[Rfam]
RNA: nadA riboswitch
RNA sequence: AGUUGCAACAUCCCCGUGGGUUGGGUGAAGGCCUGGAGCCGACACAGUGAAUCCACUGCAACU
Numbered sequence: 001a002g003u004u005g006c007a008a009c010a011u012c013c014c015c016g017u018g019g020g021u022u023g024g025g026u027g028a029a030g031g032c033c034u035g036g037a038g039c040c041g042a043c044a045c046a047g048u049g050a051a052u053c054c055a056c057u058g059c060a061a062c063u
Base pairs, nucleotide, nucleotide: 001063002062003061004060005059006058007057013049014047016056017055018054019053020052021051022050023048025045026044027043030040031039032038